Source information: This 73-nucleotide RNA sequence from Chaetomium sp. MPI-SDFR-AT-0129 belongs to the Rfam family "bZIP non canonical Hac1/Xbp1 intron".
RNA sequence: CGCUUCCACCGACGCGACACAACAUCCUGCAGAGAUGUUGUGCUCAGACCUGCCGUGUCGGUUGGUGGAAGCA
Numbered sequence: 001c002g003c004u005u006c007c008a009c010c011g012a013c014g015c016g017a018c019a020c021a022a023c024a025u026c027c028u029g030c031a032g033a034g035a036u037g038u039u040g041u042g043c044u045c046a047g048a049c050c051u052g053c054c055g056u057g058u059c060g061g062u063u064g065g066u067g068g069a070a071g072c073a
Base pairs, nucleotide, nucleotide: 002072003071004070005069006068007067009065010064011063012062013061021039022038023037024036025035026034047059048058049057

The literature on the family includes a 2011 paper in RNA Biol by Hooks and Griffiths-Jones, "Conserved RNA structures in the non-canonical Hac1/Xbp1 intron". Rfam describes the family as follows. bZIP intron RNA is a non-canonical intron that was first reported in HAC1 gene in yeast and XBP1 gene in Metazoa.